[Rfam]
About this RNA
Rfam assigns this 142-nucleotide RNA sequence from Raphanus sativus to the family "MIR396 microRNA precursor family". On this family, see Jones-Rhoades and Bartel, Mol Cell 2004: "Computational identification of plant microRNAs and their targets, including a stress-induced miRNA". Gene Ontology terms of the family: miRNA-mediated post-transcriptional gene silencing and RISC complex. A search with the family's covariance model found it, with a score of 82 bits. Taxonomically the source falls in Raphanus (Eukaryota, Mesangiospermae, eudicotyledons, malvids).
RNA sequence: GGUUAUAUUUUUCCACAGCUUUCUUGAACUUUCUUUUUCAUUUCCCUUCUUUUAAAGAUGUAAUAACUAAAGAUUGUUUUUAAACAUUUAACACUCUAGAAACAAAAAAAAAGCUCAAGAAAGCUGUGGGAAAACAUGACAA
Numbered sequence: 001g002g003u004u005a006u007a008u009u010u011u012u013c014c015a016c017a018g019c020u021u022u023c024u025u026g027a028a029c030u031u032u033c034u035u036u037u038u039c040a041u042u043u044c045c046c047u048u049c050u051u052u053u054a055a056a057g058a059u060g061u062a063a064u065a066a067c068u069a070a071a072g073a074u075u076g077u078u079u080u081u082a083a084a085c086a087u088u089u090a091a092c093a094c095u096c097u098a099g100a101a102a103c104a105a106a107a108a109a110a111a112a113g114c115u116c117a118a119g120a121a122a123g124c125u126g127u128g129g130g131a132a133a134a135c136a137u138g139a140c141a142a
Base pairs, nucleotide, nucleotide: 003139004138005137006136013129014128015127017125018124019123020122021121022120024118025117026116027115029113030112031111032110